[Rfam]
Record summary:
Rfam assigns this 60-nucleotide sequence from Salmo salar to the family "mir-23 microRNA precursor family". For this family Rfam cites "The developmental miRNA profiles of zebrafish as determined by small RNA cloning" (Chen et al., Genes Dev, 2005). The family has 83 seed sequences and 1,403 matches in Rfam 15.1. Rfam links the family to the GO terms RISC complex and gene silencing by miRNA.
RNA sequence: GGGUUCCUGGCGUGCUGAUUUGUGACUUAAGAUAAAAUCACAUUGCCAGGGAUUACCACC
Numbered sequence: 001g002g003g004u005u006c007c008u009g010g011c012g013u014g015c016u017g018a019u020u021u022g023u024g025a026c027u028u029a030a031g032a033u034a035a036a037a038u039c040a041c042a043u044u045g046c047c048a049g050g051g052a053u054u055a056c057c058a059c060c
Stems, first nucleotide, its partner, number of pairs: 001057002003053010013042002016040006